This 304-nucleotide sequence from Metallosphaera yellowstonensis belongs to the Rfam family "Archaeal RNase P". Rfam links the family to the GO terms multimeric ribonuclease P complex, ribonuclease P activity and tRNA processing. NCBI's taxonomy places the organism under Archaea, Thermoproteota, Sulfolobales, Sulfolobaceae, Metallosphaera yellowstonensis. The match comes from Rfam's covariance-model search (160 bits). Ribonuclease P (RNase P) is a ubiquitous endoribonuclease, found in archaea, bacteria and eukarya as well as chloroplasts and mitochondria.
RNA sequence: GGGAGCCAGGCAGAGGGCCACGGGAAACUGAGGAAACUCCAGCCUCUAGGCCAGGGGGAGUCCCAUGAGGGACGGGGGUAGUGCCUCCGACCACUGCACAGAAACGAGACCUCGUCAGGUUCAGAUGAAUAGGAACCGAUGGUUCCUCCGGUGACGGGGGAACUUGGCGAGAGAGCCUGACGGGGUUGAAACGGCAGAUCUCCCCUUGAGCAAGUCAGAGGAACCGUGAUGGGGCCGAGAGUUCCUCUAAGUACGCUAAGCGGAAUCCCUCAUAUACAGAAGCUGGGUUAUUGCCUUGGCUCCC
Numbered sequence: 001g002g003g004a005g006c007c008a009g010g011c012a013g014a015g016g017g018c019c020a021c022g023g024g025a026a027a028c029u030g031a032g033g034a035a036a037c038u039c040c041a042g043c044c045u046c047u048a049g050g051c052c053a054g055g056g057g058g059a060g061u062c063c064c065a066u067g068a069g070g071g072a073c074g075g076g077g078g079u080a081g082u083g084c085c086u087c088c089g090a091c092c093a094c095u096g097c098a099c100a101g102a103a104a105c106g107a108g109a110c111c112u113c114g115u116c117a118g119g120u121u122c123a124g125a126u127g128a129a130u131a132g133g134a135a136c137c138g139a140u141g142g143u144u145c146c147u148c149c150g151g152u153g154a155c156g157g158g159g160g161a162a163c164u165u166g167g168c169g170a171g172a173g174a175g176c177c178u179g180a181c182g183g184g185g186u187u188g189a190a191a192c193g194g195c196a197g198a199u200c201u202c203c204c205c206u207u208g209a210g211c212a213a214g215u216c217a218g219a220g221g222a223a224c225c226g227u228g229a230u231g232g233g234g235c236c237g238a239g240a241g242u243u244c245c246u247c248u249a250a251g252u253a254c255g256c257u258a259a260g261c262g263g264a265a266u267c268c269c270u271c272a273u274a275u276a277c278a279g280a281a282g283c284u285g286g287g288u289u290a291u292u293g294c295c296u297u298g299g300c301u302c303c304c
Stems, first nucleotide, its partner, number of pairs: 001304003005300005010294002013271005021030003035289003039286005044210003049236004055205005060073005074088005089200002094197004110185011136167004214254002216251001220245005